c-di-GMP-I riboswitch aptamer: an 88-nucleotide sequence from Paenibacillus dendrobii. Rfam links the family to the GO term cyclic-di-GMP binding. NCBI's taxonomy places the organism under Bacteria, Bacilli, Caryophanales, Paenibacillaceae, Paenibacillus. A search with the family's covariance model found it, with a score of 83 bits.
RNA sequence: AAAUGAUAAAGGCAAACCCAUUGAAAAGUGGGGACGCAAAACUACAGGGGCUAACGCGAAUGAUUCGCCAUGCCAGCCAGUUACCGAC
Numbered sequence: 001a002a003a004u005g006a007u008a009a010a011g012g013c014a015a016a017c018c019c020a021u022u023g024a025a026a027a028g029u030g031g032g033g034a035c036g037c038a039a040a041a042c043u044a045c046a047g048g049g050g051c052u053a054a055c056g057c058g059a060a061u062g063a064u065u066c067g068c069c070a071u072g073c074c075a076g077c078c079a080g081u082u083a084c085c086g087a088c
Stems, first nucleotide, its partner, number of pairs: 012037002017032006040082004047078002049074003056068004